[Rfam]
RNA sequence: ACAACCGUCAAAGGGGAGUAGCCUUGGAGUUGGUUUAGUGUCGAUUCCAAAAUAAUAGUCGUCAUUACAUGAUUUACGAAUCAUCGGCUUUAUUGGCAAAAAAUUGCUUAGCGAGACCUUUGUCCUUAGUGGCAGAAGUCUCGCUUUUUGAUU
Numbered sequence: 001a002c003a004a005c006c007g008u009c010a011a012a013g014g015g016g017a018g019u020a021g022c023c024u025u026g027g028a029g030u031u032g033g034u035u036u037a038g039u040g041u042c043g044a045u046u047c048c049a050a051a052a053u054a055a056u057a058g059u060c061g062u063c064a065u066u067a068c069a070u071g072a073u074u075u076a077c078g079a080a081u082c083a084u085c086g087g088c089u090u091u092a093u094u095g096g097c098a099a100a101a102a103a104u105u106g107c108u109u110a111g112c113g114a115g116a117c118c119u120u121u122g123u124c125c126u127u128a129g130u131g132g133c134a135g136a137a138g139u140c141u142c143g144c145u146u147u148u149u150g151a152u153u
Stems, first nucleotide, its partner, number of pairs: 025049008051094005057089005069084005095152001097150005
Background
This 153-nucleotide sequence from Virgibacillus indicus belongs to the Rfam family "Manganese Mn2+ riboswitch aptamer (yybP-ykoY)". The match comes from Rfam's covariance-model search (46 bits). For this family Rfam cites "Novel small RNA-encoding genes in the intergenic regions of Escherichia coli" (Argaman et al., Curr Biol, 2001).